mir-137 microRNA precursor family: a 75-nucleotide RNA sequence from Daphnia pulex.
A reference for the family is Ruby et al. (2007), "Evolution, biogenesis, expression, and target predictions of a substantially expanded set of Drosophila microRNAs", Genome Res.
The family has 62 seed sequences and 1,138 matches in Rfam 15.1.
Gene Ontology terms of the family: miRNA-mediated post-transcriptional gene silencing and RISC complex.
RNA sequence: AGACCUCGGCGGGUAUUCUCAGGUGAUUAACACGUGAUAAGAAGUUGUUAUUGCUUGAGAAUACACGUUGUAUCU
Numbered sequence: 001a002g003a004c005c006u007c008g009g010c011g012g013g014u015a016u017u018c019u020c021a022g023g024u025g026a027u028u029a030a031c032a033c034g035u036g037a038u039a040a041g042a043a044g045u046u047g048u049u050a051u052u053g054c055u056u057g058a059g060a061a062u063a064c065a066c067g068u069u070g071u072a073u074c075u
Stems, first nucleotide, its partner, number of pairs: 001075003009068003013064012026052001028050005033044001